The family of this 453-nucleotide part of an RNA from Encephalitozoon cuniculi is "Microsporidia small subunit ribosomal RNA". The literature on the family includes a 2001 paper in Science by Yusupov et al., "Crystal structure of the ribosome at 5.5 A resolution". Its Rfam clan is "SSU clan".
RNA sequence: CACCAGGUUGAUUCUGCCUGACGUGGAUGCUAUUCUCUGGGGCUAAGCCAUGCAUGCUUGUGAACUCUUUGUGGGGGAUUAGCGGACGGCUCAGUGAUAGCACGAUGAUUUGUUUGCGGGAUGAGCAGUAGCUGCGGGAAACUGCAGAUAGUGGUCUGCCCCUGUGGGGUUGGCAAGUAAGUUGUGGGCCUAUCAGCUGGUAGUUAGGGUAAUGGCCUAACUAGGCGCAGACGGGAUACGGGGGAUCAGGGUUUGGUUCCGGAGAGGGAGCCUGAGAGAUGGCUACUACGUCCAAGGAUGGCAGCAGGCGCGAAACUUGCCUAAUCCUUUGGGGAGGCGGUUAUGAGAAGUGAUGUGUGUGCGAGUGCAAAGGGGUCGCAUGUGAUUGGAGGGCAAGUCGGGUGCCAGCAGCCGCGGUAAUACCUGCUCCAAUAGUGUCUAUGGUGGAUGCUG
Numbered sequence: 001c002a003c004c005a006g007g008u009u010g011a012u013u014c015u016g017c018c019u020g021a022c023g024u025g026g027a028u029g030c031u032a033u034u035c036u037c038u039g040g041g042g043c044u045a046a047g048c049c050a051u052g053c054a055u056g057c058u059u060g061u062g063a064a065c066u067c068u069u070u071g072u073g074g075g076g077g078a079u080u081a082g083c084g085g086a087c088g089g090c091u092c093a094g095u096g097a098u099a100g101c102a103c104g105a106u107g108a109u110u111u112g113u114u115u116g117c118g119g120g121a122u123g124a125g126c127a128g129u130a131g132c133u134g135c136g137g138g139a140a141a142c143u144g145c146a147g148a149u150a151g152u153g154g155u156c157u158g159c160c161c162c163u164g165u166g167g168g169g170u171u172g173g174c175a176a177g178u179a180a181g182u183u184g185u186g187g188g189c190c191u192a193u194c195a196g197c198u199g200g201u202a203g204u205u206a207g208g209g210u211a212a213u214g215g216c217c218u219a220a221c222u223a224g225g226c227g228c229a230g231a232c233g234g235g236a237u238a239c240g241g242g243g244g245a246u247c248a249g250g251g252u253u254u255g256g257u258u259c260c261g262g263a264g265a266g267g268g269a270g271c272c273u274g275a276g277a278g279a280u281g282g283c284u285a286c287u288a289c290g291u292c293c294a295a296g297g298a299u300g301g302c303a304g305c306a307g308g309c310g311c312g313a314a315a316c317u318u319g320c321c322u323a324a325u326c327c328u329u330u331g332g333g334g335a336g337g338c339g340g341u342u343a344u345g346a347g348a349a350g351u352g353a354u355g356u357g358u359g360u361g362c363g364a365g366u367g368c369a370a371a372g373g374g375g376u377c378g379c380a381u382g383u384g385a386u387u388g389g390a391g392g393g394c395a396a397g398u399c400g401g402g403u404g405c406c407a408g409c410a411g412c413c414g415c416g417g418u419a420a421u422a423c424c425u426g427c428u429c430c431a432a433u434a435g436u437g438u439c440u441a442u443g444g445u446g447g448a449u450g451c452u453g
Stems, first nucleotide, its partner, number of pairs: 004020005022443010033349005039342002041311001047309003051306003056083002059081002065075002090264003101186006109180002114176004119171002125155002132147006189235003196226003201223008239261004243254004266287002269284003289300004317339001319338003325334003360380005386432006399426004408415002
The family's consensus secondary structure is taken from published work. Its family is annotated with ribosome and structural constituent of ribosome in the Gene Ontology.